The family of this 125-nucleotide sequence from Asparagus officinalis is "Small nucleolar RNA snoR111". It scores 86 bits against the family's covariance model. Taxonomically the source falls in Asparagus (Eukaryota, Embryophyta, Spermatophyta, Petrosaviidae). Rfam classes the family as an H/ACA-box small nucleolar RNA.
RNA sequence: AAAAAAGAGGUGGCGCUUCUUCGAUAGGCGCCGUUCUCUGAUUCAAAGAGGAAGAGUAUAUUGGUGAGAUAUCGUUUCGGUCGCCCUUUUGUUCGGUUGGCGAUUCGAUUGUUGCUCCUCUACAA
Numbered sequence: 001a002a003a004a005a006a007g008a009g010g011u012g013g014c015g016c017u018u019c020u021u022c023g024a025u026a027g028g029c030g031c032c033g034u035u036c037u038c039u040g041a042u043u044c045a046a047a048g049a050g051g052a053a054g055a056g057u058a059u060a061u062u063g064g065u066g067a068g069a070u071a072u073c074g075u076u077u078c079g080g081u082c083g084c085c086c087u088u089u090u091g092u093u094c095g096g097u098u099g100g101c102g103a104u105u106c107g108a109u110u111g112u113u114g115c116u117c118c119u120c121u122a123c124a125a
Stems, first nucleotide, its partner, number of pairs: 006039005013031006063121002066117003071109004080104006088096002
Dot-bracket structure: .....(((((..((((((.......))))))...))))).......................((.(((..((((.....((((((..((.....))..)))))).)))).....)))..))....